[Rfam]
RNA sequence: UUAAUUGCCAAUGCAGCAUCAUCAAGAUUCUCAGGCCAAAACUAUAUACAUAGACGUAUACAUAUAAAUGUGUGUGCCACGUUGCAUGUGAAUCUUGAUGAUGCUACAUUUGCAAACAA
Numbered sequence: 001u002u003a004a005u006u007g008c009c010a011a012u013g014c015a016g017c018a019u020c021a022u023c024a025a026g027a028u029u030c031u032c033a034g035g036c037c038a039a040a041a042c043u044a045u046a047u048a049c050a051u052a053g054a055c056g057u058a059u060a061c062a063u064a065u066a067a068a069u070g071u072g073u074g075u076g077c078c079a080c081g082u083u084g085c086a087u088g089u090g091a092a093u094c095u096u097g098a099u100g101a102u103g104c105u106a107c108a109u110u111u112g113c114a115a116a117c118a119a
Stems, first nucleotide, its partner, number of pairs: 010110004015105016032088002
The record is a 119-nucleotide RNA from Hibiscus syriacus, which matches "mir-172 microRNA precursor family" in Rfam. It scores 75 bits against the family's covariance model. The base pairs follow the family's consensus structure, which was predicted with PFOLD. NCBI's taxonomy places the organism under Eukaryota, Streptophytina, Euphyllophyta, Gunneridae, Hibiscus. mir-172 has been experimentally verified in Arabidopsis thaliana. This family is thought to target mRNAs coding for APETALA2-like transcription factors. The mature sequence is excised from the 3' arm of the hairpin.